Rfam assigns this 67-nucleotide sequence from Hermetia illucens to the family "mir-14 microRNA precursor family".
The literature on the family includes a 2009 paper in BMC Genomics by Li et al., "Direct sequencing and expression analysis of a large number of miRNAs in Aedes aegypti and a multi-species survey of novel mosquito miRNAs".
The family's consensus secondary structure was predicted with RNAalifold.
The organism belongs to Hermetia, within Eukaryota.
[Rfam]
RNA sequence: UGUGGGAGCGAGAUAGAGGCUUACUGUGCAUUGAACGAAACUAGUCAGUCUUUUUCUCUCUCCUAUA
Number, nucleotide and partner (000 for none) at each position: 001u067002g066003u065004g064005g063006g062007a061008g060009c000010g058011a057012g056013a055014u000015a053016g052017a051018g050019g049020c048021u047022u000023a045024c044025u043026g042027u000028g000029c000030a000031u000032u000033g000034a000035a000036c000037g000038a000039a000040a000041c000042u026043a025044g024045u023046c000047a021048g020049u019050c018051u017052u016053u015054u000055u013056c012057u011058c010059u000060c008061u007062c006063c005064u004065a003066u002067a001